[Rfam]
RNA sequence: CUCUAGCUAUGAUGUAAAUAAGUUAUCCCUGUCUGAAAAACACUGUGGAUACUGACUUUCUGAGCUAGAG
Dot-bracket structure: (((((((........................................................)))))))
The family of this 70-nucleotide RNA from Holothuria leucospilota is "Small nucleolar RNA R38". On this family, see Chen et al., Nucleic Acids Res 2003: "The high diversity of snoRNAs in plants: identification and comparative study of 120 snoRNA genes from Oryza sativa". Gene Ontology terms of the family: RNA processing and nucleolus.